[Rfam]
RNA sequence: UAAAAGGGUCGGUUGGCUAAUUAUGCCACACUCAUCCUUGUUCGGUGAGUGCCGUAUGGCAAUCAAGACAUAUGGCCGACAUAAUUUGUGGAGCCUUAAUAGGGUUGGCCCGCUUGGUCGACCCUCUUG
Numbered sequence: 001u002a003a004a005a006g007g008g009u010c011g012g013u014u015g016g017c018u019a020a021u022u023a024u025g026c027c028a029c030a031c032u033c034a035u036c037c038u039u040g041u042u043c044g045g046u047g048a049g050u051g052c053c054g055u056a057u058g059g060c061a062a063u064c065a066a067g068a069c070a071u072a073u074g075g076c077c078g079a080c081a082u083a084a085u086u087u088g089u090g091g092a093g094c095c096u097u098a099a100u101a102g103g104g105u106u107g108g109c110c111c112g113c114u115u116g117g118u119c120g121a122c123c124c125u126c127u128u129g
Base pairs, nucleotide, nucleotide: 008080009079010078011077012076014028015027016026017025029051030050031049032048033047034046035045036044052075053074054073055072056071057070058069099127101125102124103123104122105121106120107119108118109117110116